[Rfam]
RNA: Plastid-ndhJ 3UTR RNA
Organism: Rhododendron williamsianum
RNA sequence: UCAUGACCUUUGUACUGCGCACAUCACUUAGACGGGUUCUAUAAAUUCAGGCAAGAG
Number, nucleotide and partner (000 for none) at each position: 001u000002c000003a000004u000005g000006a000007c000008c000009u000010u000011u000012g000013u000014a000015c000016u000017g000018c000019g037020c036021a000022c034023a000024u032025c031026a000027c000028u000029u000030a000031g025032a024033c000034g022035g000036g020037u019038u000039c000040u000041a000042u000043a000044a000045a000046u000047u000048c000049a000050g000051g000052c000053a000054a000055g000056a000057g000